Small nucleolar RNA SNORD79: an 83-nucleotide RNA sequence from Ochotona princeps. The organism belongs to Ochotona, within Eukaryota. By type it is a C/D-box small nucleolar RNA. A reference for the family is Galardi et al. (2002), "Purified box C/D snoRNPs are able to reproduce site-specific 2'-O-methylation of target RNA in vitro", Mol Cell Biol. The sequence is in the family's curated seed alignment. About the family: snoRNA U79 or Z22 is found in intron 7 of the gas5 gene in humans and is also present in mice.
RNA sequence: GGCUGUUGAUGAUGACAUACAGUUAAAACAGAUGGGAAUCUCUCUGAAAGAGGAUGAGGACACCACUCUACACUGAAACAGUG
Dot-bracket structure: .((((((.....................................................................)))))).
Rfam links the family to the GO terms RNA processing and nucleolus.